[Rfam]
RNA: Bacteriophage Diversity-Generating Retroelement RNA
Nucleotides: 139
Base pairs, nucleotide, nucleotide: 001028002027004026005025006024007023008022009021012019013018062071063070064069085139087138088137089136090135091134096131097130098129099128105123106122
Number, partner (000 for none) and nucleotide at each position: 001028g002027c003000g004026c005025c006024a007023c008022g009021u010000u011000g012019c013018u014000u015000a016000c017000g018013g019012g020000c021009g022008c023007g024006u025005g026004g027002g028001c029000c030000g031000a032000c033000c034000a035000u036000c037000a038000a039000a040000c041000c042000u043000a044000u045000g046000g047000u048000c049000a050000g051000c052000c053000g054000u055000g056000u057000u058000g059000u060000c061000c062071u063070g064069c065000u066000u067000c068000g069064g070063c071062g072000a073000a074000u075000a076000c077000c078000u079000u080000u081000g082000g083000g084000g085139g086000u087138c088137u089136g090135g091134u092000a093000g094000a095000g096131c097130g098129u099128c100000u101000a102000g103000u104000a105123g106122c107000c108000u109000g110000u111000g112000g113000c114000g115000a116000c117000a118000c119000a120000c121000g122106g123105c124000g125000a126000a127000c128099g129098a130097c131096g132000c133000g134091g135090c136089c137088a138087g139085c